[Rfam]
RNA sequence: UCAGCUGUAACUCACUGAGGGACCGCACUUUUGUGCAGAUAAAUGGGAUACUAUUAUGUUAAUGAGAAUUUCAAUAUUAAUAAUGUUCCCGUCUAUCGCAAGACAUCAGUUACUGAACAUGUUUUACUGGAAAGGAAACAUGUUGAAGUAAUGAUGAAUCAUAAACCGCCCCAGGCUGGAAACAGAGCAGGGUUAAUGAUCGCUGAUGUACGGUGUGAAGAUUACGGUUGAACAUGUAAAUAUUUC
Numbered sequence: 001u002c003a004g005c006u007g008u009a010a011c012u013c014a015c016u017g018a019g020g021g022a023c024c025g026c027a028c029u030u031u032u033g034u035g036c037a038g039a040u041a042a043a044u045g046g047g048a049u050a051c052u053a054u055u056a057u058g059u060u061a062a063u064g065a066g067a068a069u070u071u072c073a074a075u076a077u078u079a080a081u082a083a084u085g086u087u088c089c090c091g092u093c094u095a096u097c098g099c100a101a102g103a104c105a106u107c108a109g110u111u112a113c114u115g116a117a118c119a120u121g122u123u124u125u126a127c128u129g130g131a132a133a134g135g136a137a138a139c140a141u142g143u144u145g146a147a148g149u150a151a152u153g154a155u156g157a158a159u160c161a162u163a164a165a166c167c168g169c170c171c172c173a174g175g176c177u178g179g180a181a182a183c184a185g186a187g188c189a190g191g192g193u194u195a196a197u198g199a200u201c202g203c204u205g206a207u208g209u210a211c212g213g214u215g216u217g218a219a220g221a222u223u224a225c226g227g228u229u230g231a232a233c234a235u236g237u238a239a240a241u242a243u244u245u246c
Stems, first nucleotide, its partner, number of pairs: 011019003066246001073244005087231002089227004093220002096218005103209008112149003116144010127134002152156001158200005168193004176185003